[Rfam]
RNA: Small nucleolar RNA SNORD83
RNA sequence: GCCACAUGAUGAGUCGAGUAGCGUCAGUAGCUCUCGGGCUGUGAUGACCUGCUAUCUAUCACCCUUUUCUGAUGGCU
Number, nucleotide and partner (000 for none) at each position: 001g076002c075003c074004a073005c000006a000007u000008g000009a000010u000011g000012a000013g000014u000015c000016g000017a000018g000019u000020a000021g000022c000023g000024u000025c000026a000027g000028u000029a000030g039031c038032u037033c000034u000035c000036g000037g032038g031039c030040u000041g000042u000043g000044a000045u000046g000047a000048c000049c000050u000051g000052c000053u000054a000055u000056c000057u000058a000059u000060c000061a000062c000063c000064c000065u000066u000067u000068u000069c000070u000071g000072a000073u004074g003075g002076c001077u000